[Rfam]
RNA sequence: GAUGAAAAAGCGUAACCGCGUUUUUUCAUUACCAAUCGGAGCAGGCUGACUGGACUUUACAAUUUGAAAACGGUAUUGGGAAUAAACAGCACUGGUGCGUCCGAGUGGCCUCGAACCACCGACCCCCACCA
Numbered sequence: 001g002a003u004g005a006a007a008a009a010g011c012g013u014a015a016c017c018g019c020g021u022u023u024u025u026u027c028a029u030u031a032c033c034a035a036u037c038g039g040a041g042c043a044g045g046c047u048g049a050c051u052g053g054a055c056u057u058u059a060c061a062a063u064u065u066g067a068a069a070a071c072g073g074u075a076u077u078g079g080g081a082a083u084a085a086a087c088a089g090c091a092c093u094g095g096u097g098c099g100u101c102c103g104a105g106u107g108g109c110c111u112c113g114a115a116c117c118a119c120c121g122a123c124c125c126c127c128a129c130c131a
Base pairs, nucleotide, nucleotide: 003028004027005026009022010021011020012019093128094127095126097124102121103120105119106118107117108116
About this RNA:
The record is a 131-nucleotide sequence from Arsenophonus endosymbiont of Bemisia tabaci, which matches "Bacterial antisense RNA HPnc0260" in Rfam. The match comes from Rfam's covariance-model search (60 bits). Taxonomically the source falls in Arsenophonus endosymbiont of Bemisia tabaci (Bacteria, Gammaproteobacteria, Enterobacterales, Morganellaceae). For this family Rfam cites "The primary transcriptome of the major human pathogen Helicobacter pylori" (Sharma et al., Nature, 2010).